[Rfam]
RNA sequence: GAUGAAGAUAGAGGUAGCAAUGCAUCAGAGUACUGCAUGGAGUUGGCAAACUAAGAAGUGCAGGAAAGGUAAUCAUUGCCGAAGGACAUAAGGUGGCAACCUUAUCCCUGGGGUAUUAGGGAAUACCUAAUACACUCCUUCAAACUUUGAAGAGGGGUUAUCUUAUAG
Number, nucleotide and partner (000 for none) at each position: 001g000002a000003u000004g000005a000006a163007g162008a161009u160010a159011g158012a000013g000014g000015u000016a000017g079018c078019a077020a076021u075022g074023c000024a000025u071026c000027a000028g000029a000030g000031u000032a000033c063034u062035g061036c060037a059038u058039g000040g000041a000042g000043u000044u000045g000046g000047c000048a000049a000050a000051c000052u000053a000054a000055g000056a000057a000058g038059u037060g036061c035062a034063g033064g000065a000066a000067a000068g000069g000070u000071a025072a000073u000074c022075a021076u020077u019078g018079c017080c000081g000082a000083a109084g108085g107086a000087c000088a105089u104090a103091a102092g101093g100094u099095g000096g000097c000098a000099a094100c093101c092102u091103u090104a089105u088106c000107c085108c084109u083110g136111g135112g000113g133114u132115a131116u130117u129118a128119g127120g126121g000122a000123a000124u000125a000126c120127c119128u118129a117130a116131u115132a114133c113134a000135c111136u110137c000138c152139u151140u150141c149142a148143a147144a000145c000146u000147u143148u142149g141150a140151a139152g138153a000154g000155g000156g000157g000158u011159u010160a009161u008162c007163u006164u000165a000166u000167a000168g000
RNA: Lysine riboswitch aptamer